[Rfam]
A member of the RNA family "permuted transfer-messenger RNA" from Prochlorococcus sp. AG-463-L06, 192 nucleotides long. Bacterial tmRNA, also known as 10Sa RNA or SsrA, is named for its dual tRNA and mRNA-like properties. It is annotated as a non-coding RNA gene. The sequence is in the family's curated seed alignment.
Nucleotides: 192
Stems, first nucleotide, its partner, number of pairs: 001109003005105001016095003020091003026042005043076007
Number, partner (000 for none) and nucleotide at each position: 001109g002108g003107u004000g005105a006000u007000c008000c009000a010000c011000a012000c013000c014000a015000g016095u017094g018093u019000c020091u021090c022089g023000g024000a025000c026042a027041g028040c029039g030038g031000u032000u033000c034000g035000a036000u037000u038030c039029c040028g041027c042026u043076c044075a045074g046073c047072u048071c049070c050000a051000u052000u053000u054000c055000c056000u057000a058000g059000u060000u061000u062000u063000c064000u065000u066000a067000g068000u069000u070049g071048g072047g073046g074045c075044u076043g077000c078000a079000a080000u081000g082000g083000c084000u085000u086000c087000g088000a089022c090021g091020g092000g093018g094017c095016a096000a097000a098000a099000g100000g101000c102000g103000g104000g105005u106000g107003a108002c109001u110000g111000a112000a113000g114000c115000c116000u117000g118000c119000u120000c121000g122000g123000u124000a125000a126000g127000a128000g129000c130000a131000a132000a133000c134000c135000c136000a137000u138000a139000a140000a141000c142000g143000c144000u145000a146000a147000c148000a149000a150000c151000a152000u153000c154000g155000u156000u157000a158000g159000u160000u161000u162000c163000u164000c165000u166000c167000g168000u169000c170000a171000a172000a173000c174000a175000g176000c177000c178000c179000c180000u181000g182000u183000u184000g185000c186000u187000g188000c189000u190000u191000g192000a